[Rfam]
RNA sequence: AGCUGUAGUGGCUUUUGGCGAAGUGUCCCUCACUUCUCAACCAUCUCUUUCACCAUCUGAUGAUGCGUGCCCAGUUCGAACUCGGUGGUGGUCGUCCACUCGCUACGGUAACGGGCGAUUUGCUGGAACGGCUCUAAGCUGCUGCGGAAUUCUUCAGCCGAGCAAUCGGGCAGAGAGCUGCAGGCCAUGGAGUGGCGGCGCUGGAUUACAUGCGUUGUUGGCGAGAUGAGUUGGGGAAAUUGAUGGGGGACGCAACGUUUUU
Numbered sequence: 001a002g003c004u005g006u007a008g009u010g011g012c013u014u015u016u017g018g019c020g021a022a023g024u025g026u027c028c029c030u031c032a033c034u035u036c037u038c039a040a041c042c043a044u045c046u047c048u049u050u051c052a053c054c055a056u057c058u059g060a061u062g063a064u065g066c067g068u069g070c071c072c073a074g075u076u077c078g079a080a081c082u083c084g085g086u087g088g089u090g091g092u093c094g095u096c097c098a099c100u101c102g103c104u105a106c107g108g109u110a111a112c113g114g115g116c117g118a119u120u121u122g123c124u125g126g127a128a129c130g131g132c133u134c135u136a137a138g139c140u141g142c143u144g145c146g147g148a149a150u151u152c153u154u155c156a157g158c159c160g161a162g163c164a165a166u167c168g169g170g171c172a173g174a175g176a177g178c179u180g181c182a183g184g185c186c187a188u189g190g191a192g193u194g195g196c197g198g199c200g201c202u203g204g205a206u207u208a209c210a211u212g213c214g215u216u217g218u219u220g221g222c223g224a225g226a227u228g229a230g231u232u233g234g235g236g237a238a239a240u241u242g243a244u245g246g247g248g249g250a251c252g253c254a255a256c257g258u259u260u261u262u
Stems, first nucleotide, its partner, number of pairs: 001013003017259004023253001025251005034239001035237003038233003042228006049221001061217009071204005076198003080193004085188004090133001092131004096126003100118005106113002134138001142183006150177005159168003
RNA: Fungal signal recognition particle RNA
Organism: Hortaea werneckii